RNA: c-di-GMP-I riboswitch aptamer
Organism: Thermincola carboxydiphila
RNA sequence: CUUUGAUAAAGGCAACUUUAUCGAAAGAUAAAGGCGCAAAACUACGGGCCUAAAGCGACAUAACGCAAUGGUUGCCGGGUUGCCGAA
Numbered sequence: 001c002u003u004u005g006a007u008a009a010a011g012g013c014a015a016c017u018u019u020a021u022c023g024a025a026a027g028a029u030a031a032a033g034g035c036g037c038a039a040a041a042c043u044a045c046g047g048g049c050c051u052a053a054a055g056c057g058a059c060a061u062a063a064c065g066c067a068a069u070g071g072u073u074g075c076c077g078g079g080u081u082g083c084c085g086a087a
Stems, first nucleotide, its partner, number of pairs: 012037002017032006040081004045077003048072003055066003